[Rfam]
RNA: sroC RNA
Organism: Enterobacteriaceae bacterium RIT714
RNA sequence: ACUAAUUAGAACCACUCGGGGCGGGACCUCCUGCCCUCUCGAUUGUCGGGAAGCGCGGACAGACUAUACGUUGAGUGGUCGUUCCCCACUUAGCGCGAACAUUGAGCUUCUCACCAAUCUUCGAGGGUAGCGCUGCUACCCUUUUUUUUCUGGA
Numbered sequence: 001a002c003u004a005a006u007u008a009g010a011a012c013c014a015c016u017c018g019g020g021g022c023g024g025g026a027c028c029u030c031c032u033g034c035c036c037u038c039u040c041g042a043u044u045g046u047c048g049g050g051a052a053g054c055g056c057g058g059a060c061a062g063a064c065u066a067u068a069c070g071u072u073g074a075g076u077g078g079u080c081g082u083u084c085c086c087c088a089c090u091u092a093g094c095g096c097g098a099a100c101a102u103u104g105a106g107c108u109u110c111u112c113a114c115c116a117a118u119c120u121u122c123g124a125g126g127g128u129a130g131c132g133c134u135g136c137u138a139c140c141c142u143u144u145u146u147u148u149u150c151u152g153g154a
Stems, first nucleotide, its partner, number of pairs: 019036004023031002037126005042118004048112002056104003060097001070094009